RNA sequence: UCACCGCCGCGUGACUGACGCUUGAAGAUGGGCCACCAUCGGGAAGCGCGAGCGGACCUCGCCGCGCGUCUGGGCAUCGCUC
Numbered sequence: 001u002c003a004c005c006g007c008c009g010c011g012u013g014a015c016u017g018a019c020g021c022u023u024g025a026a027g028a029u030g031g032g033c034c035a036c037c038a039u040c041g042g043g044a045a046g047c048g049c050g051a052g053c054g055g056a057c058c059u060c061g062c063c064g065c066g067c068g069u070c071u072g073g074g075c076a077u078c079g080c081u082c
Stems, first nucleotide, its partner, number of pairs: 004054001008050005015043002017070005028039004061075003

This 82-nucleotide sequence from Sphingomonas koreensis belongs to the Rfam family "ZMP/ZTP riboswitch aptamer (pfl RNA motif)". A search with the family's covariance model found it, with a score of 52 bits.